ilvH RNA: a 68-nucleotide sequence from Burkholderiales bacterium PBB3. By type it is a cis-regulatory element. The organism belongs to Burkholderiales, within Bacteria. It scores 86 bits against the family's covariance model.
RNA sequence: GACGAAUCUAUUGUUUGCCAAUUCCGGGUGUUACCGCACUCGGAGGAGGGCAACGAAAAGAGGAAUCA
Numbered sequence: 001g002a003c004g005a006a007u008c009u010a011u012u013g014u015u016u017g018c019c020a021a022u023u024c025c026g027g028g029u030g031u032u033a034c035c036g037c038a039c040u041c042g043g044a045g046g047a048g049g050g051c052a053a054c055g056a057a058a059a060g061a062g063g064a065a066u067c068a
Stems, first nucleotide, its partner, number of pairs: 011056003015053005023044009